[Rfam]
RNA sequence: UGCCCGAUGCCACGUCCUUGGUAGCUUGUGAUUUUUGGCCGUGACCGCGGAUGCUAUGAUCGGGCACAUACUAAUUUUUUUAUUCACAUUUCUGAUAGGAAACCGAGGGCGUAUUAUUCGGUUGCUUAUUGGUGCCAUUCUUGUGAUUACAGUU
Numbered sequence: 001u002g003c004c005c006g007a008u009g010c011c012a013c014g015u016c017c018u019u020g021g022u023a024g025c026u027u028g029u030g031a032u033u034u035u036u037g038g039c040c041g042u043g044a045c046c047g048c049g050g051a052u053g054c055u056a057u058g059a060u061c062g063g064g065c066a067c068a069u070a071c072u073a074a075u076u077u078u079u080u081u082a083u084u085c086a087c088a089u090u091u092c093u094g095a096u097a098g099g100a101a102a103c104c105g106a107g108g109g110c111g112u113a114u115u116a117u118u119c120g121g122u123u124g125c126u127u128a129u130u131g132g133u134g135c136c137a138u139u140c141u142u143g144u145g146a147u148u149a150c151a152g153u154u
Stems, first nucleotide, its partner, number of pairs: 002065007009057001013053005020046003024039003084146005098136002103132003107127005
Small nucleolar RNA snoR2/U65: a 154-nucleotide RNA sequence from Taxus chinensis. Taxonomically the source falls in Taxus (Eukaryota, Tracheophyta, Pinidae, Taxaceae). The match comes from Rfam's covariance-model search (96 bits).